[Rfam]
RNA sequence: GAAUGAUACGUGAGAAUCGUAUCCGCUGGAUGACUAAGGGUUCCUGGGUCAAGUUCGUCUUCCCAGGGUGAGUCGGGUCCUAAGGCGAGGCCGACAGGCGUAGUCGAUGGUCAACGGGUUGAUAUUCCCGUACCCGUACCACACCGCAAGGAUUGAAUCAGUGAUACUAACCACCCUGACCAUCUGCCAUGGUGCUCUUUGAGUACCAGGUGGGUGUGAUGCGUGGGGCCUGAACUGGUAGUAGGUCAGUGAUGGGGUGACACAGGUUGGUAGCACCGCCCCUUAGUGGAUUGGGGUGCAAGCGUGUGGCAUAUCGGUGAGGUAAAUCCCGCCGUGUAUAUAUGUGAGGCGUGAUGCGGAAGGCGAAAGGGCCUUUAAAGGGUGUGAUCCUGUACUGUCGAGAAAAGCCUCUAGCGAUGGGGUGGUACGGCCCGUACCCGAAACCGACACAGGUAGUCAGGUAGAGAAUACUCAAGCGGU
Numbered sequence: 001g002a003a004u005g006a007u008a009c010g011u012g013a014g015a016a017u018c019g020u021a022u023c024c025g026c027u028g029g030a031u032g033a034c035u036a037a038g039g040g041u042u043c044c045u046g047g048g049u050c051a052a053g054u055u056c057g058u059c060u061u062c063c064c065a066g067g068g069u070g071a072g073u074c075g076g077g078u079c080c081u082a083a084g085g086c087g088a089g090g091c092c093g094a095c096a097g098g099c100g101u102a103g104u105c106g107a108u109g110g111u112c113a114a115c116g117g118g119u120u121g122a123u124a125u126u127c128c129c130g131u132a133c134c135c136g137u138a139c140c141a142c143a144c145c146g147c148a149a150g151g152a153u154u155g156a157a158u159c160a161g162u163g164a165u166a167c168u169a170a171c172c173a174c175c176c177u178g179a180c181c182a183u184c185u186g187c188c189a190u191g192g193u194g195c196u197c198u199u200u201g202a203g204u205a206c207c208a209g210g211u212g213g214g215u216g217u218g219a220u221g222c223g224u225g226g227g228g229c230c231u232g233a234a235c236u237g238g239u240a241g242u243a244g245g246u247c248a249g250u251g252a253u254g255g256g257g258u259g260a261c262a263c264a265g266g267u268u269g270g271u272a273g274c275a276c277c278g279c280c281c282c283u284u285a286g287u288g289g290a291u292u293g294g295g296g297u298g299c300a301a302g303c304g305u306g307u308g309g310c311a312u313a314u315c316g317g318u319g320a321g322g323u324a325a326a327u328c329c330c331g332c333c334g335u336g337u338a339u340a341u342a343u344g345u346g347a348g349g350c351g352u353g354a355u356g357c358g359g360a361a362g363g364c365g366a367a368a369g370g371g372c373c374u375u376u377a378a379a380g381g382g383u384g385u386g387a388u389c390c391u392g393u394a395c396u397g398u399c400g401a402g403a404a405a406a407g408c409c410u411c412u413a414g415c416g417a418u419g420g421g422g423u424g425g426u427a428c429g430g431c432c433c434g435u436a437c438c439c440g441a442a443a444c445c446g447a448c449a450c451a452g453g454u455a456g457u458c459a460g461g462u463a464g465a466g467a468a469u470a471c472u473c474a475a476g477c478g479g480u
Stems, first nucleotide, its partner, number of pairs: 005023006024478004032458004038438002043067006052060002074434004079110002084105003088101001090099003114131005134430009144420001254411005262398004269390002273385005278297005298357002302352004309345003315334005321329002359376006444453002460472004